[Rfam]
Nucleotides: 219
Stems, first nucleotide, its partner, number of pairs: 007102002015096004026085006039075002051073006105130007132143003160172005178215003188212005
Number, partner (000 for none) and nucleotide at each position: 001000c002000g003000a004000a005000a006000a007102a008101u009000g010000a011000u012000g013000a014000u015096a016095a017094g018093g019000a020000a021000u022000a023000g024000u025000a026085g027084u028083g029082a030081a031080g032000c033000u034000u035000c036000a037000a038000g039075a040074g041000c042000a043000a044000a045000u046000a047000g048000a049000g050000a051073g052072a053071u054070g055069g056068c057000g058000g059000u060000u061000g062000g063000u064000g065000a066000a067000a068056g069055c070054u071053a072052u073051c074040c075039u076000u077000g078000g079000a080031c081030u082029u083028u084027a085026u086000g087000a088000a089000c090000u091000c092000g093018c094017c095016u096015u097000u098000g099000a100000u101008g102007u103000u104000g105130c106129a107128a108127a109126u110125c111124u112000g113000a114000a115000c116000g117000a118000a119000u120000a121000g122000u123000a124111a125110g126109a127108u128107u129106u130105g131000u132143c133142g134141u135000a136000u137000c138000u139000c140000u141134g142133c143132g144000u145000u146000a147000a148000g149000g150000a151000g152000c153000u154000u155000a156000a157000g158000u159000g160172a161171g162170u163169g164168u165000c166000a167000a168164a169163c170162a171161c172160u173000a174000a175000u176000u177000u178215g179214g180213g181000u182000g183000g184000u185000a186000c187000c188212g189211c190210g191209g192208g193000u194000g195000g196000c197000a198000a199000a200000a201000a202000a203000a204000g205000c206000c207000c208192c209191u210190c211189g212188u213180c214179c215178c216000u217000a218000u219000u

T-box leader: a 219-nucleotide RNA sequence from Pontibacillus litoralis. Taxonomically the source falls in Pontibacillus litoralis (Bacteria, Bacillota, Bacilli, Caryophanales). Its family is annotated with tRNA binding in the Gene Ontology. Rfam's curators write: Uncharged tRNA acts as the effector for transcription antitermination of genes in the T-box leader family. The match comes from Rfam's covariance-model search (127 bits). The family's consensus secondary structure is taken from published work.